[Rfam]
RNA sequence: GUCAUAAAUAGAGGAGCAGUCAUAGGGUAACCGGCGUAUGUGAAAGAGGCACACAUCUGAUGAUUCCGGUGAAGGCUUUGGCUGCCGAAAGAGGCCUAUUGGUGUGCAAAGGGGAUCUUGACAGUUUAGGACAGUCCUAGGCUGUUGUCAUGCGAUUUUUAUGCAUGGAGAGCUAUUUAUGUA
Numbered sequence: 001g002u003c004a005u006a007a008a009u010a011g012a013g014g015a016g017c018a019g020u021c022a023u024a025g026g027g028u029a030a031c032c033g034g035c036g037u038a039u040g041u042g043a044a045a046g047a048g049g050c051a052c053a054c055a056u057c058u059g060a061u062g063a064u065u066c067c068g069g070u071g072a073a074g075g076c077u078u079u080g081g082c083u084g085c086c087g088a089a090a091g092a093g094g095c096c097u098a099u100u101g102g103u104g105u106g107c108a109a110a111g112g113g114g115a116u117c118u119u120g121a122c123a124g125u126u127u128a129g130g131a132c133a134g135u136c137c138u139a140g141g142c143u144g145u146u147g148u149c150a151u152g153c154g155a156u157u158u159u160u161a162u163g164c165a166u167g168g169a170g171a172g173c174u175a176u177u178u179a180u181g182u183a
Base pairs, nucleotide, nucleotide: 006178007177008176009175010174011173016085017084018083019082020081021080022079024077030070031069032068033067034066036064089119090118091117092116095113096112097111099109100108120146121145122144123143124142125141126140127139128138129137130136148168149167150166151165152164153163154162
Rfam assigns this 183-nucleotide RNA sequence from Tindallia californiensis to the family "Lysine riboswitch aptamer". For this family Rfam cites "Riboswitches Control Fundamental Biochemical Pathways in Bacillus subtilis and Other Bacteria" (Mandal et al., Cell, 2003). The base pairs follow the family's consensus structure, which is taken from published work. The match comes from Rfam's covariance-model search (66 bits). The source organism's lineage runs through Bacteria, Bacillota, Clostridia, Tindalliaceae and Tindallia. Rfam links the family to the GO term lysine biosynthetic process. The family has 47 seed sequences and 3,224 matches in Rfam 15.1.